The record is a 121-nucleotide sequence from Sinorhizobium medicae, which matches "Alphaproteobacterial ar14" in Rfam. Smr14C2 was renamed NfeR1 (Nodule Formation Efficiency RNA) highly expressed in salt stress and during the symbiotic interaction on legume roots. Its family is annotated with biological process involved in symbiotic interaction in the Gene Ontology. NCBI's taxonomy places the organism under Bacteria, Alphaproteobacteria, Hyphomicrobiales, Rhizobiaceae, Sinorhizobium medicae. It is one of the family's seed sequences.
[Rfam]
RNA sequence: GGAAUUCGAAGCAGCGCACUCCUCCUCCCAGCGCCGCUUUGAUAGGAUUGGCAGCACUCCUCCUCCCGGUUGCCAAUCGCCUUUGUGACGCCCGCCGGUCCUCCCCCGGCGGGCGUUCUCU
Numbered sequence: 001g002g003a004a005u006u007c008g009a010a011g012c013a014g015c016g017c018a019c020u021c022c023u024c025c026u027c028c029c030a031g032c033g034c035c036g037c038u039u040u041g042a043u044a045g046g047a048u049u050g051g052c053a054g055c056a057c058u059c060c061u062c063c064u065c066c067c068g069g070u071u072g073c074c075a076a077u078c079g080c081c082u083u084u085g086u087g088a089c090g091c092c093c094g095c096c097g098g099u100c101c102u103c104c105c106c107c108g109g110c111g112g113g114c115g116u117u118c119u120c121u
Stems, first nucleotide, its partner, number of pairs: 007041003011037002014034004046078010088116011